The family of this 70-nucleotide RNA sequence from Tricholaema leucomelas is "Small nucleolar RNA SNORD73". The literature on the family includes a 1998 paper in Gene by Rebane et al., "A novel snoRNA (U73) is encoded within the introns of the human and mouse ribosomal protein S3a genes". Rfam 15.1 lists 769 matches to the family in 586 species. Taxonomically the source falls in Tricholaema lacrymosa (Eukaryota, Metazoa, Coraciimorphae, Lybiidae). The base pairs follow the family's consensus structure, which was predicted with PFOLD.
RNA sequence: AAUGAAUGAUGACAAGAUGUUUUGGUCCCAGAUGACGUGGAGUGAUUACUUUUUCCCAUUUUCUGACAUU
Numbered sequence: 001a002a003u004g005a006a007u008g009a010u011g012a013c014a015a016g017a018u019g020u021u022u023u024g025g026u027c028c029c030a031g032a033u034g035a036c037g038u039g040g041a042g043u044g045a046u047u048a049c050u051u052u053u054u055c056c057c058a059u060u061u062u063c064u065g066a067c068a069u070u
Stems, first nucleotide, its partner, number of pairs: 001070004